[Rfam]
RNA sequence: GGCCCAUAUUUGAAGUAAAGUAGAUCAGAAGGAUCGUGCGACCCUACUGAACUACUCUACUUCGAAUUUGUGCCC
Numbered sequence: 001g002g003c004c005c006a007u008a009u010u011u012g013a014a015g016u017a018a019a020g021u022a023g024a025u026c027a028g029a030a031g032g033a034u035c036g037u038g039c040g041a042c043c044c045u046a047c048u049g050a051a052c053u054a055c056u057c058u059a060c061u062u063c064g065a066a067u068u069u070g071u072g073c074c075c
Stems, first nucleotide, its partner, number of pairs: 001074003005070002008067002011064007019056005025050004030045001032043001034041002
A member of the RNA family "mir-5928 microRNA precursor family" from Haemonchus placei, 75 nucleotides long. The family has 5 seed sequences and 1,672 matches in Rfam 15.1. NCBI's taxonomy places the organism under Eukaryota, Eumetazoa, Bilateria, Ecdysozoa, Haemonchus.